RNA sequence: GAGCUGUACUUUUUGGGAUCAUUUCUAUAGUGUCUAACUUGAUAAAAUGUGUGGGAAAAUGUUUGGUUGUGCAGUUUACAGGGAAGAGCUGCAGUAUUCUCUUCCGAGAAUGAGUCUGUCUUACAAGUCUGCUUUUACGGCAGUGCUGUAUGAUCUUGAUGAAUGCUCUUAAUCUCUUUGAGAGAGCUAUUCAGUACAUGCUGAAUAGA
Number, nucleotide and partner (000 for none) at each position: 001g040002a039003g038004c000005u036006g034007u032008a031009c030010u029011u000012u000013u000014u027015g026016g025017g024018a023019u000020c000021a000022u000023u018024u017025c016026u015027a014028u000029a010030g009031u008032g007033u000034c006035u000036a005037a000038c003039u002040u001041g000042a000043u000044a000045a000046a000047a000048u000049g000050u000051g063052u000053g062054g000055g000056a000057a000058a000059a000060u000061g000062u053063u051064u000065g000066g000067u000068u000069g000070u000071g000072c000073a000074g000075u209076u208077u207078a206079c000080a000081g000082g000083g000084a000085a000086g000087a000088g000089c000090u000091g000092c000093a000094g197095u196096a195097u194098u193099c000100u000101c000102u189103u000104c000105c186106g000107a000108g166109a000110a164111u000112g000113a000114g000115u000116c000117u000118g154119u153120c152121u000122u000123a000124c000125a000126a147127g146128u145129c143130u142131g141132c140133u139134u000135u000136u000137a000138c000139g133140g132141c131142a130143g129144u000145g128146c127147u126148g000149u000150a000151u000152g120153a119154u118155c000156u000157u000158g000159a000160u000161g000162a000163a000164u110165g000166c108167u000168c182169u181170u180171a179172a178173u000174c000175u000176c000177u000178u172179u171180g170181a169182g168183a000184g000185a000186g105187c000188u000189a102190u000191u000192c000193a098194g097195u096196a095197c094198a000199u000200g000201c000202u000203g000204a000205a000206u078207a077208g076209a075

Shown here is a 209-nucleotide RNA from Microcaecilia unicolor, a member of the family "Small nucleolar RNA U3".
Gene Ontology terms of the family: nucleolus and RNA processing.
NCBI's taxonomy places the organism under Eukaryota, Euteleostomi, Dipnotetrapodomorpha, Siphonopidae, Microcaecilia.
The family is grouped with related families in Rfam's "U3 clan".
Rfam's curators write: Small nucleolar RNAs (snoRNAs) are involved in the processing and modification of rRNA in the nucleolus. There are two main classes of snoRNAs: the box C/D class, and the box H/ACA class. U3 snoRNA is a member of the box C/D class.
The family has 87 seed sequences and 19,072 matches in Rfam 15.1.
The literature on the family includes a 1997 paper in Nucleic Acids Res by Zwieb, "The uRNA database".
The family's consensus secondary structure is taken from published work.